[Rfam]
RNA sequence: UUACAAUUAAAGGAUAUUUCUUGCGGCCACUUCUGGAUCAGAAAUGUCCUUUAAUUGUUUGGU
Numbered sequence: 001u002u003a004c005a006a007u008u009a010a011a012g013g014a015u016a017u018u019u020c021u022u023g024c025g026g027c028c029a030c031u032u033c034u035g036g037a038u039c040a041g042a043a044a045u046g047u048c049c050u051u052u053a054a055u056u057g058u059u060u061g062g063u
Base pairs, nucleotide, nucleotide: 003058004057005056006055007054008053009052010051012049013048014047015046016045017044018043019042020041021040024035025034
mir-7552 microRNA precursor family: a 63-nucleotide RNA from Nothobranchius furzeri. The base pairs follow the family's consensus structure, which was predicted with RNAalifold. Rfam 15.1 lists 220 matches to the family in 102 species. The organism belongs to Nothobranchius, within Eukaryota.